[Rfam]
RNA sequence: ACCUCAUCCAGAGGGGCAGAGGGAACGGCCCGUUGAAGCCCCGGCAACCACCGCGCGUGUCUCGAUGACGAGGCCCACCCGCUCGGCAGGUGCUAAUUCCGUCCCCGUUCCGGCAGGUCGCCGCGGGGAAAGAUGAGAG
Dot-bracket structure: ..((((((....(((((...(((.[[[[)))......)))))((((.((.(((..............................)))..))))))...(]]]]((((((..............))))))..)))))))..
Numbered sequence: 001a002c003c004u005c006a007u008c009c010a011g012a013g014g015g016g017c018a019g020a021g022g023g024a025a026c027g028g029c030c031c032g033u034u035g036a037a038g039c040c041c042c043g044g045c046a047a048c049c050a051c052c053g054c055g056c057g058u059g060u061c062u063c064g065a066u067g068a069c070g071a072g073g074c075c076c077a078c079c080c081g082c083u084c085g086g087c088a089g090g091u092g093c094u095a096a097u098u099c100c101g102u103c104c105c106c107g108u109u110c111c112g113g114c115a116g117g118u119c120g121c122c123g124c125g126g127g128g129a130a131a132g133a134u135g136a137g138a139g
Stems, first nucleotide, its partner, number of pairs: 003137006013042005021031003025102004043094004048090002051086003098131001103128006